[Rfam]
RNA sequence: AGAGGCCUCUGCGGCUGGGGUGGAAUGCUUGCCUCAUUGCCAUGGUGACAAAGCAAGCAUUCUGCCAGGCCGCUCAUGCUGCCCAC
Numbered sequence: 001a002g003a004g005g006c007c008u009c010u011g012c013g014g015c016u017g018g019g020g021u022g023g024a025a026u027g028c029u030u031g032c033c034u035c036a037u038u039g040c041c042a043u044g045g046u047g048a049c050a051a052a053g054c055a056a057g058c059a060u061u062c063u064g065c066c067a068g069g070c071c072g073c074u075c076a077u078g079c080u081g082c083c084c085a086c
Stems, first nucleotide, its partner, number of pairs: 004083003011073006019066014037048004

Rfam assigns this 86-nucleotide sequence from Myotis lucifugus to the family "mir-9195 microRNA precursor family". The family's consensus secondary structure was predicted with RNAalifold. The source organism's lineage runs through Eukaryota, Metazoa, Chordata, Yangochiroptera and Myotis.